Description: The family of this 160-nucleotide RNA from Theobroma cacao is "mir-166 microRNA precursor family". Rfam's curators write: This family represents the plant microRNA (miRNA) precursor mir-166. The family's consensus secondary structure was predicted with PFOLD.
RNA sequence: UUUGAGGGGAAUGUUGUCUGGCUCGAGGCCACCAACUAGAUCUAUAAUUCUAUCUCAAUUGAUCAAAAUUUUCUGUGGAUUUUAUUUUUUCGACUAAAGUUGAGAUCAUGAUCAUUGAUCAUAAGUUAGUGACGUCGGACCAGGCUUCAUUCCCCCCAAU
Numbered sequence: 001u002u003u004g005a006g007g008g009g010a011a012u013g014u015u016g017u018c019u020g021g022c023u024c025g026a027g028g029c030c031a032c033c034a035a036c037u038a039g040a041u042c043u044a045u046a047a048u049u050c051u052a053u054c055u056c057a058a059u060u061g062a063u064c065a066a067a068a069u070u071u072u073c074u075g076u077g078g079a080u081u082u083u084a085u086u087u088u089u090u091c092g093a094c095u096a097a098a099g100u101u102g103a104g105a106u107c108a109u110g111a112u113c114a115u116u117g118a119u120c121a122u123a124a125g126u127u128a129g130u131g132a133c134g135u136c137g138g139a140c141c142a143g144g145c146u147u148c149a150u151u152c153c154c155c156c157c158a159a160u
Stems, first nucleotide, its partner, number of pairs: 002159003006155008016145006024137003